[Rfam]
The record is a 55-nucleotide RNA sequence from Crocuta crocuta, which matches "Whalefall-1 RNA" in Rfam. The match comes from Rfam's covariance-model search (38 bits).
RNA sequence: GUAUUUCUUCUGGGGAAGAAGUAGAAACCAAACCUUUCUGUUUCUGGAGGAGGAA
Numbered sequence: 001g002u003a004u005u006u007c008u009u010c011u012g013g014g015g016a017a018g019a020a021g022u023a024g025a026a027a028c029c030a031a032a033c034c035u036u037u038c039u040g041u042u043u044c045u046g047g048a049g050g051a052g053g054a055a
Base pairs, nucleotide, nucleotide: 004021005020006019007018008017009016010015024044025043026042027041028040031037032036